[Rfam]
RNA sequence: ACCUUCUUGUAUAAGUACUGCUAAAACUGCAGAAACCAAGGAUCACAUCUUGGUUUUUGUAAUAAUGCUAGCAGAGUACACACAAGAAAAGUAACUGCACUAGAUGGUAAAGACGGGGAUGGACCACCUCUUUCUUAAUAUCCAGUGUCUUUUGUCUUAAGAUUUGGUGUGAUAUGU
Numbered sequence: 001a002c003c004u005u006c007u008u009g010u011a012u013a014a015g016u017a018c019u020g021c022u023a024a025a026a027c028u029g030c031a032g033a034a035a036c037c038a039a040g041g042a043u044c045a046c047a048u049c050u051u052g053g054u055u056u057u058u059g060u061a062a063u064a065a066u067g068c069u070a071g072c073a074g075a076g077u078a079c080a081c082a083c084a085a086g087a088a089a090a091g092u093a094a095c096u097g098c099a100c101u102a103g104a105u106g107g108u109a110a111a112g113a114c115g116g117g118g119a120u121g122g123a124c125c126a127c128c129u130c131u132u133u134c135u136u137a138a139u140a141u142c143c144a145g146u147g148u149c150u151u152u153u154g155u156c157u158u159a160a161g162a163u164u165u166g167g168u169g170u171g172a173u174a175u176g177u
Base pairs, nucleotide, nucleotide: 018076019073020072021071022070023069026066028064029063032057033056035054036053037052038051039050041049042048043047096171097170098169099168100167101166102165103164104163116148118146120144121143122142123141
RNA: Small nucleolar RNA SNORA81